[Rfam]
RNA: Manganese Mn2+ riboswitch aptamer (yybP-ykoY)
RNA sequence: CCUCCUGUCAUUGGGGAGUAGCUAACCUUUUCUGUGCAUCGUUUAUGUACAUUGUCGAAAAGGGGCUCAUGUCAACAUUCUUGGGGUUUAAGCAUCCCAUGGCGUGAGCAGCAACCGGAGCGAUUUGCAGAGAUUGUGAUCCUUCGGCUUGAUC
Numbered sequence: 001c002c003u004c005c006u007g008u009c010a011u012u013g014g015g016g017a018g019u020a021g022c023u024a025a026c027c028u029u030u031u032c033u034g035u036g037c038a039u040c041g042u043u044u045a046u047g048u049a050c051a052u053u054g055u056c057g058a059a060a061a062g063g064g065g066c067u068c069a070u071g072u073c074a075a076c077a078u079u080c081u082u083g084g085g086g087u088u089u090a091a092g093c094a095u096c097c098c099a100u101g102g103c104g105u106g107a108g109c110a111g112c113a114a115c116c117g118g119a120g121c122g123a124u125u126u127g128c129a130g131a132g133a134u135u136g137u138g139a140u141c142c143u144u145c146g147g148c149u150u151g152a153u154c
Stems, first nucleotide, its partner, number of pairs: 026063007065109010082099005